[Rfam]
tRNA: a 72-nucleotide RNA from Saccharomyces cerevisiae.
Nucleotides: 072
Base pairs, nucleotide, nucleotide: 001071002070003069004068005067006066007065010025011024012023027043028042029041031039048064049063050062051061052060
Number, partner (000 for none) and nucleotide at each position: 001071g002070a003069c004068c005067u006066u007065a008000u009000c010025g011024u012023c013000u014000a015000a016000u017000g018000g019000u020000u021000a022000c023012g024011a025010c026000a027043u028042c029041a030000c031039c032000u033000c034000u035000u036000c037000a038000u039031g040000u041029u042028g043027a044000u045000a046000a047000u048064a049063u050062c051061g052060g053000u054000u055000c056000g057000a058000u059000u060052c061051c062050g063049a064048u065007u066006a067005a068004g069003g070002u071001u072000a